RNA sequence: AAUUAAAGUUUUGGUGUCUUAUGAUGAAGCUUCAUAGGGCAGAUUCUGAGUUGAGAAAUCAAGUUUCUCUCCACUGAUCCUCUCUAUAUGACAUCUGAAGACACUAUAUAUUAC
Number, nucleotide and partner (000 for none) at each position: 001a000002a000003u000004u000005a000006a000007a000008g000009u000010u000011u000012u106013g105014g104015u103016g102017u101018c100019u099020u000021a000022u000023g000024a000025u000026g000027a000028a000029g094030c000031u000032u091033c090034a089035u088036a000037g083038g082039g081040c000041a000042g078043a000044u000045u077046c076047u000048g074049a000050g072051u000052u000053g069054a068055g067056a066057a065058a000059u000060c000061a000062a000063g000064u000065u057066u056067c055068u054069c053070u000071c000072c050073a000074c048075u000076g046077a045078u042079c000080c000081u039082c038083u037084c000085u000086a000087u000088a035089u034090g033091a032092c000093a000094u029095c000096u000097g000098a000099a019100g018101a017102c016103a015104c014105u013106a012107u000108a000109u000110a000111u000112u000113a000114c000
Notes: The record is a 114-nucleotide sequence from Oenanthe oenanthe, which matches "Small nucleolar RNA SNORD90" in Rfam. On this family, see Huttenhofer et al., EMBO J 2001: "RNomics: an experimental approach that identifies 201 candidates for novel, small, non-messenger RNAs in mouse". By type it is a C/D-box small nucleolar RNA. Rfam describes the family as follows. snoRNA HBII-295 belongs to the family of C/D snoRNAs. Gene Ontology terms of the family: RNA processing and nucleolus. The family has 18 seed sequences and 545 matches in Rfam 15.1.